[Rfam]
RNA sequence: CACAGACAUCAAUGAUUCAUUUUGCGAACCGGCCCCUACCGCCAGAUAAGCGUUCAUGCCCAGCUCUUUCAUCUGCUGUUCGCCAAUCACUCGCGUGGUGAUACGGCUACUGAAGGCAUCCGCCAACUGGCGUGCCUGAGAAGCCAGAUAACCGGCAUUACAAAUAUUCGGCGGCAUAUUGCCAAGAUCUUUCGC
Numbered sequence: 001c002a003c004a005g006a007c008a009u010c011a012a013u014g015a016u017u018c019a020u021u022u023u024g025c026g027a028a029c030c031g032g033c034c035c036c037u038a039c040c041g042c043c044a045g046a047u048a049a050g051c052g053u054u055c056a057u058g059c060c061c062a063g064c065u066c067u068u069u070c071a072u073c074u075g076c077u078g079u080u081c082g083c084c085a086a087u088c089a090c091u092c093g094c095g096u097g098g099u100g101a102u103a104c105g106g107c108u109a110c111u112g113a114a115g116g117c118a119u120c121c122g123c124c125a126a127c128u129g130g131c132g133u134g135c136c137u138g139a140g141a142a143g144c145c146a147g148a149u150a151a152c153c154g155g156c157a158u159u160a161c162a163a164a165u166a167u168u169c170g171g172c173g174g175c176a177u178a179u180u181g182c183c184a185a186g187a188u189c190u191u192u193c194g195c
Stems, first nucleotide, its partner, number of pairs: 005189002013031002016028003020024001035041001050059002062077003078135002081132005087126001092122002095119003099112002102109002137162002140159002143156003167186002170183003
Rfam assigns this 195-nucleotide RNA sequence from Serratia sp. DD3 to the family "Yersinia sRNA 276". The family's consensus secondary structure was predicted with RNAfold. A reference for the family is Nuss et al. (2015), "Transcriptomic profiling of Yersinia pseudotuberculosis reveals reprogramming of the Crp regulon by temperature and uncovers Crp as a master regulator of small RNAs", PLoS Genet. The family's RNA type in Rfam is antisense RNA.